A member of the RNA family "COG3943 RNA", 111 nucleotides long.
The family's consensus secondary structure is taken from published work.

RNA sequence: UUCGCUCCACACAGAUAAAUUAAUCUGAGCAUGUGGCCAUCCAAAGAGUGGAUGUAACACCAGUAGUUAAGUUGCUUGGGAUAUAGCAAAUGUUAACUACAUUCAUGGUGU
Numbered sequence: 001u002u003c004g005c006u007c008c009a010c011a012c013a014g015a016u017a018a019a020u021u022a023a024u025c026u027g028a029g030c031a032u033g034u035g036g037c038c039a040u041c042c043a044a045a046g047a048g049u050g051g052a053u054g055u056a057a058c059a060c061c062a063g064u065a066g067u068u069a070a071g072u073u074g075c076u077u078g079g080g081a082u083a084u085a086g087c088a089a090a091u092g093u094u095a096a097c098u099a100c101a102u103u104c105a106u107g108g109u110g111u
Base pairs, nucleotide, nucleotide: 012027013026014025015024016023038054039053040052041051042050057111058110059109060108061107063100064099065098066097067096068095069094070093072089073088074087075086076085
It is annotated as a small RNA.